A member of the RNA family "Pseudomonas sRNA P31" from Pseudomonas sp. THAF187a, 79 nucleotides long.

[Rfam]
RNA sequence: AGAAGACCUCCGUCACGAUCAAGGCUUGAAGCAAACGCAGGUUGUAAAAAAGCGGGAUGACGUGUGAAGGUCAUCCCGC
Number, nucleotide and partner (000 for none) at each position: 001a000002g000003a000004a000005g043006a000007c041008c040009u039010c000011c000012g000013u000014c000015a000016c000017g000018a000019u000020c000021a000022a000023g000024g032025c031026u030027u000028g000029a000030a026031g025032c024033a000034a000035a000036c000037g000038c000039a009040g008041g007042u000043u005044g000045u000046a000047a000048a000049a000050a000051a000052g079053c078054g077055g076056g000057a000058u073059g072060a071061c070062g000063u000064g000065u000066g000067a000068a000069g000070g061071u060072c059073a058074u000075c000076c055077c054078g053079c052
Pairs were carried over by alignment from the consensus structure, which was predicted with CMfinder. Lineage of the source: Bacteria > Pseudomonadota > Pseudomonadales > Pseudomonadaceae > Pseudomonas.